[Rfam]
RNA sequence: CAAAGGUUACAGCUCUUCCAGAAAGUGUCUAGCAGGCUUUCUGGUUCUUAGCAGAAAACCACC
Numbered sequence: 001c002a003a004a005g006g007u008u009a010c011a012g013c014u015c016u017u018c019c020a021g022a023a024a025g026u027g028u029c030u031a032g033c034a035g036g037c038u039u040u041c042u043g044g045u046u047c048u049u050a051g052c053a054g055a056a057a058a059c060c061a062c063c
Base pairs, nucleotide, nucleotide: 035060036059038057039056040055041054042053043052045050
The record is a 63-nucleotide RNA from Microtus ochrogaster, which matches "U7 small nuclear RNA" in Rfam. The base pairs follow the family's consensus structure, which was predicted with PFOLD. Animal histone pre-mRNAs are spliced by a different mechanism than nuclear pre-mRNAs and self-splicing introns. This processing involves the U7 snRNP, which contains only one RNA species: U7. Taxonomically the source falls in Microtus (Eukaryota, Opisthokonta, Deuterostomia, Eutheria). For this family Rfam cites "Identification of the human U7 snRNP as one of several factors involved in the 3' end maturation of histone premessenger RNA's" (Mowry and Steitz, Science, 1987).